Rfam assigns this 270-nucleotide RNA sequence from Mus spicilegus to the family "Mason-Pfizer monkey virus packaging signal".
This family represents a group of sequences that are related to the Mason-Pfizer monkey virus (MPMV) packaging signal. The packaging signal is located in the 5' UTR and is required for specific RNA encapsidation.
It scores 77 bits against the family's covariance model.
The family's consensus secondary structure was predicted with PFOLD.
[Rfam]
RNA sequence: UGGCAACCAAUGAGAGGCUUAAGAAGGGACCAGUGAAGAUCACCUCAGUGUUUUUGAUCAGCUGACAAAUUUUGUAUGAAAGAAGUCUUCUGCAGGAACCUGCGGCCUAGAUUAGGGAUCCAGUAAGUUUGCAGUGACCACUGGGACAGACUUGAAUAGCCAUGAAUUAUUUGUAGAAAGGUUGAAAAUGCCUUUAAAGACUCAAGGGAUAAAGGUUAAAAUACAUGAUUUGUUUGCAUUUUUUGAUUUUUGUAAAAGAGAUUUUUCCAU
Numbered sequence: 001u002g003g004c005a006a007c008c009a010a011u012g013a014g015a016g017g018c019u020u021a022a023g024a025a026g027g028g029a030c031c032a033g034u035g036a037a038g039a040u041c042a043c044c045u046c047a048g049u050g051u052u053u054u055u056g057a058u059c060a061g062c063u064g065a066c067a068a069a070u071u072u073u074g075u076a077u078g079a080a081a082g083a084a085g086u087c088u089u090c091u092g093c094a095g096g097a098a099c100c101u102g103c104g105g106c107c108u109a110g111a112u113u114a115g116g117g118a119u120c121c122a123g124u125a126a127g128u129u130u131g132c133a134g135u136g137a138c139c140a141c142u143g144g145g146a147c148a149g150a151c152u153u154g155a156a157u158a159g160c161c162a163u164g165a166a167u168u169a170u171u172u173g174u175a176g177a178a179a180g181g182u183u184g185a186a187a188a189u190g191c192c193u194u195u196a197a198a199g200a201c202u203c204a205a206g207g208g209a210u211a212a213a214g215g216u217u218a219a220a221a222u223a224c225a226u227g228a229u230u231u232g233u234u235u236g237c238a239u240u241u242u243u244u245g246a247u248u249u250u251u252g253u254a255a256a257a258g259a260g261a262u263u264u265u266u267c268c269a270u
Base pairs, nucleotide, nucleotide: 007027008026032045033043034042082121084119087110088109092106093105095103127147128146129145130144132143133142134141135140152196154194157190203245204244205243206242207241208240209239210238213231214230215229216228217227218226255270258267259266260265
Dot-bracket structure: ......((.................))....(((.......)).)....................................(.(..((...((.(.......).))..))........).).....((((.((((....))))))))....(.(..(................................)...).)......((((((((..((((((.......))))))......)))))))).........(..(((....)))..)